[Rfam]
RNA sequence: UUGCCCGUCAGAGUGGUUGUGAUGUGGCGAUUUUGUGAAUGCAUAUCACAGCCAGCUUUGAUGAGCGAUA
Numbered sequence: 001u002u003g004c005c006c007g008u009c010a011g012a013g014u015g016g017u018u019g020u021g022a023u024g025u026g027g028c029g030a031u032u033u034u035g036u037g038a039a040u041g042c043a044u045a046u047c048a049c050a051g052c053c054a055g056c057u058u059u060g061a062u063g064a065g066c067g068a069u070a
Base pairs, nucleotide, nucleotide: 006063007062008061009060010059011058012057013056014054015053016052017051018050019049020048021047022046023045024044025043
mir-2 microRNA precursor family: a 70-nucleotide RNA sequence from Diachasma alloeum. The family has 56 seed sequences and 918 matches in Rfam 15.1. It scores 62 bits against the family's covariance model. Pairs were carried over by alignment from the consensus structure, which was predicted with PFOLD.